The record is a 76-nucleotide RNA sequence from Danionella cerebrum, which matches "mir-92 microRNA precursor family" in Rfam. Pairs were carried over by alignment from the consensus structure, which was predicted with PFOLD.
RNA sequence: UGUUGUUUGCAGGUUGGGAUGGGAUGCAAUGCUGUGCCCUCGAAGUAUUGCACUUGUCCCGGCCUGUGGAGACCAG
Numbered sequence: 001u002g003u004u005g006u007u008u009g010c011a012g013g014u015u016g017g018g019a020u021g022g023g024a025u026g027c028a029a030u031g032c033u034g035u036g037c038c039c040u041c042g043a044a045g046u047a048u049u050g051c052a053c054u055u056g057u058c059c060c061g062g063c064c065u066g067u068g069g070a071g072a073c074c075a076g
Stems, first nucleotide, its partner, number of pairs: 004072001006070001009067006016060005022054002026051008
Annotation: The family is grouped with related families in Rfam's "mir-92 microRNA precursor clan". The match comes from Rfam's covariance-model search (58 bits). From the family's description: This family represents the microRNA precursor mir-92.